Background:
This 72-nucleotide sequence from Mesocricetus auratus belongs to the Rfam family "mir-148/mir-152 microRNA precursor family". The source organism's lineage runs through Eukaryota, Bilateria, Gnathostomata, Amniota and Mesocricetus. A search with the family's covariance model found it, with a score of 60 bits. Its family is annotated with RISC complex and miRNA-mediated post-transcriptional gene silencing in the Gene Ontology. The literature on the family includes a 2002 paper in Curr Biol by Lagos-Quintana et al., "Identification of tissue-specific microRNAs from mouse". Pairs were carried over by alignment from the consensus structure, which was predicted with RNAalifold.
Nucleotides: 072
Base pairs, nucleotide, nucleotide: 004068005067006066007065008064009063010062011061012060013059014058015057016056022050023049024048025047030044
Number, partner (000 for none) and nucleotide at each position: 001000u002000u003000g004068a005067g006066g007065u008064g009063a010062a011061g012060u013059u014058c015057u016056g017000u018000u019000a020000u021000a022050c023049a024048c025047u026000c027000a028000u029000c030044c031000c032000c033000a034000g035000g036000c037000u038000c039000c040000a041000a042000a043000a044030g045000u046000c047025a048024g049023u050022g051000c052000a053000u054000c055000a056016c057015a058014g059013a060012a061011c062010u063009u064008u065007g066006u067005c068004u069000c070000g071000g072000a